[Rfam]
RNA sequence: AAUCUAGGAGGCAGGUGCUCACUUGUCCUCCUCCAUGCUUGGAAAAUACAGGGAGGAGGCCAUAGUGGCAACUGUUACCAUGAUU
Numbered sequence: 001a002a003u004c005u006a007g008g009a010g011g012c013a014g015g016u017g018c019u020c021a022c023u024u025g026u027c028c029u030c031c032u033c034c035a036u037g038c039u040u041g042g043a044a045a046a047u048a049c050a051g052g053g054a055g056g057a058g059g060c061c062a063u064a065g066u067g068g069c070a071a072c073u074g075u076u077a078c079c080a081u082g083a084u085u
Base pairs, nucleotide, nucleotide: 001085002084003083004082007079008078010076011075012074013073014072016070017069018068020067021066022065023064024062025061027059028058029057030056031055032054033053034052036050037049040046